[Rfam]
RNA sequence: GCAGGUGAAUGCAACGUCAAGCGAUGGGCGUUGCGCUCCAUAUUGUCUUAUUUCCUUUUUUGAAUUAUUGCAUAGCAUAUUUAAUUCAGAUGAUGCCGGGUGAAUAGCCCGGCAUUU
Numbered sequence: 001g002c003a004g005g006u007g008a009a010u011g012c013a014a015c016g017u018c019a020a021g022c023g024a025u026g027g028g029c030g031u032u033g034c035g036c037u038c039c040a041u042a043u044u045g046u047c048u049u050a051u052u053u054c055c056u057u058u059u060u061u062g063a064a065u066u067a068u069u070g071c072a073u074a075g076c077a078u079a080u081u082u083a084a085u086u087c088a089g090a091u092g093a094u095g096c097c098g099g100g101u102g103a104a105u106a107g108c109c110c111g112g113c114a115u116u117u
Stems, first nucleotide, its partner, number of pairs: 001046004007038002010035009062087006069077003095113007
RNA: Fumarate/nitrate reductase regulator sRNA